[Rfam]
RNA sequence: GAGUGAUGAUGAUAAGAUUUUCCUAUUGACCUUUUAAACUAUGAAGGUUUCUAUACUUGAUCUAAGUUCA
Numbered sequence: 001g002a003g004u005g006a007u008g009a010u011g012a013u014a015a016g017a018u019u020u021u022c023c024u025a026u027u028g029a030c031c032u033u034u035u036a037a038a039c040u041a042u043g044a045a046g047g048u049u050u051c052u053a054u055a056c057u058u059g060a061u062c063u064a065a066g067u068u069c070a
Base pairs, nucleotide, nucleotide: 001069002068003067004066014033015032016031018029019028
RNA: Small nucleolar RNA U2-30
Organism: Tupaia belangeri